RNA sequence: GGGUAAUGUCUACUGAACCCUUAUCACUGUAAGCACUCGAUCACGCUGUGGGCUUAAAUUGCCUUAGACGUUUAUUGUCAAAAGUGUGUUGUGAGGGAGGGUUGAAUGCCCU
Numbered sequence: 001g002g003g004u005a006a007u008g009u010c011u012a013c014u015g016a017a018c019c020c021u022u023a024u025c026a027c028u029g030u031a032a033g034c035a036c037u038c039g040a041u042c043a044c045g046c047u048g049u050g051g052g053c054u055u056a057a058a059u060u061g062c063c064u065u066a067g068a069c070g071u072u073u074a075u076u077g078u079c080a081a082a083a084g085u086g087u088g089u090u091g092u093g094a095g096g097g098a099g100g101g102u103u104g105a106a107u108g109c110c111c112u
Stems, first nucleotide, its partner, number of pairs: 001020004007035003011031003036095004040090001042088006050064004067079004098112005
RNA: epsC RNA
Organism: Paenibacillus sp. yr247